Shown here is a 76-nucleotide RNA from Myotis davidii, a member of the family "mir-9229 microRNA precursor family". The base pairs follow the family's consensus structure, which was predicted with RNAalifold. Rfam links the family to the GO terms RISC complex and miRNA-mediated post-transcriptional gene silencing. NCBI's taxonomy places the organism under Eukaryota, Bilateria, Tetrapoda, Eutheria, Myotis. It scores 86 bits against the family's covariance model.
[Rfam]
RNA sequence: GAGACACCCUCAUGGAGCAGUACUUGCUUCAGUGGGGCUUUGGUGCUCACUGAGUCUGCUCUGUGAGUGUGUUGCU
Numbered sequence: 001g002a003g004a005c006a007c008c009c010u011c012a013u014g015g016a017g018c019a020g021u022a023c024u025u026g027c028u029u030c031a032g033u034g035g036g037g038c039u040u041u042g043g044u045g046c047u048c049a050c051u052g053a054g055u056c057u058g059c060u061c062u063g064u065g066a067g068u069g070u071g072u073u074g075c076u
Base pairs, nucleotide, nucleotide: 001075003073004072005071006070007069009067010066011065012064014062015061016060017059018058019057022055023054029053030052031051032050033049034048035047036046037044038043